[Rfam]
RNA sequence: AAGCUGUGAUGAAGAUCUAGCUGUGUACCGGAGACGGUCUCUAAUGAUUCCGUUGUUGACGGCAACACAACCCUCUAAGAAGUUCUGAGCUU
Numbered sequence: 001a002a003g004c005u006g007u008g009a010u011g012a013a014g015a016u017c018u019a020g021c022u023g024u025g026u027a028c029c030g031g032a033g034a035c036g037g038u039c040u041c042u043a044a045u046g047a048u049u050c051c052g053u054u055g056u057u058g059a060c061g062g063c064a065a066c067a068c069a070a071c072c073c074u075c076u077a078a079g080a081a082g083u084u085c086u087g088a089g090c091u092u
Base pairs, nucleotide, nucleotide: 001092002091003090004089
A member of the RNA family "Small nucleolar RNA U61" from Carya illinoinensis, 92 nucleotides long.
The family is grouped with related families in Rfam's "SNORD61 clan".
Rfam 15.1 lists 401 matches to the family in 204 species.
For this family Rfam cites "Plant snoRNA database" (Brown et al., Nucleic Acids Res, 2003).
The family's RNA type in Rfam is C/D-box small nucleolar RNA.
A search with the family's covariance model found it, with a score of 77 bits.
Taxonomically the source falls in Carya (Eukaryota, Tracheophyta, Mesangiospermae, eudicotyledons).